[Rfam]
RNA sequence: GGCCCAAACUCAAAGUAGUUUAGUUCAGUAGGGUCAGAUGAUCCUUCUAAUCUACUCUACUUCAAAUUUGGGCCC
Numbered sequence: 001g002g003c004c005c006a007a008a009c010u011c012a013a014a015g016u017a018g019u020u021u022a023g024u025u026c027a028g029u030a031g032g033g034u035c036a037g038a039u040g041a042u043c044c045u046u047c048u049a050a051u052c053u054a055c056u057c058u059a060c061u062u063c064a065a066a067u068u069u070g071g072g073c074c075c
Base pairs, nucleotide, nucleotide: 001074002073003072004071005070006069007068008067013062014061015060016059017058018057021054022053023052025050027048028047030045032043033042034041035040